Overview
Shown here is a 74-nucleotide sequence from Nicotiana attenuata, a member of the family "MIR6152 microRNA precursor family". A search with the family's covariance model found it, with a score of 74 bits. Its family is annotated with RISC complex and miRNA-mediated post-transcriptional gene silencing in the Gene Ontology. The base pairs follow the family's consensus structure, which was predicted with RNAalifold. Taxonomically the source falls in Nicotiana (Eukaryota, Mesangiospermae, Pentapetalae, Solanaceae).

[Rfam]
RNA sequence: UGGACAGAUUAUUGUAUUCGACUGUAUUCACGGCGUGAAACAGGAAAGUGAAUCAAUUAACAUAAUAGACUCCU
Numbered sequence: 001u002g003g004a005c006a007g008a009u010u011a012u013u014g015u016a017u018u019c020g021a022c023u024g025u026a027u028u029c030a031c032g033g034c035g036u037g038a039a040a041c042a043g044g045a046a047a048g049u050g051a052a053u054c055a056a057u058u059a060a061c062a063u064a065a066u067a068g069a070c071u072c073c074u
Stems, first nucleotide, its partner, number of pairs: 002073003009068007017060002020058002023055002026053006034043001035041002